[Rfam]
RNA sequence: UAAUCCGGCGAGAACCAUUUGAAUCUAGUGAUUCAAAUGGUUCUCACAAA
Numbered sequence: 001u002a003a004u005c006c007g008g009c010g011a012g013a014a015c016c017a018u019u020u021g022a023a024u025c026u027a028g029u030g031a032u033u034c035a036a037a038u039g040g041u042u043c044u045c046a047c048a049a050a
Base pairs, nucleotide, nucleotide: 008047010045011044012043013042014041015040016039017038018037019036020035021034022033023032024031025030

The family of this 50-nucleotide RNA sequence from Loropetalum subcordatum is "Plastid-ccsA-ndhD-1 3UTR RNA". The source organism's lineage runs through Eukaryota, eudicotyledons, Gunneridae, Hamamelidaceae and Loropetalum. It is annotated as a cis-regulatory element. Clan: Plastid-ccsA_ndhD 3UTR RNA clan. It is one of the family's seed sequences.